[Rfam]
Notes:
Shown here is an 80-nucleotide sequence from Paenibacillus whitsoniae, a member of the family "ZMP/ZTP riboswitch aptamer (pfl RNA motif)". The match comes from Rfam's covariance-model search (61 bits).
RNA sequence: UCUGGCAUGUGUAACUGGCGAAACGUAGAGGACUACGGGGGAGCACAUGCGUCAUGCAGCCGAUCGCCUGGGCAGAGCGU
Numbered sequence: 001u002c003u004g005g006c007a008u009g010u011g012u013a014a015c016u017g018g019c020g021a022a023a024c025g026u027a028g029a030g031g032a033c034u035a036c037g038g039g040g041g042a043g044c045a046c047a048u049g050c051g052u053c054a055u056g057c058a059g060c061c062g063a064u065c066g067c068c069u070g071g072g073c074a075g076a077g078c079g080u
Base pairs, nucleotide, nucleotide: 005050006049007048008047009046010045011044012043015040016039017068018067019066020065021064025036026035027034028033057075059073060072061071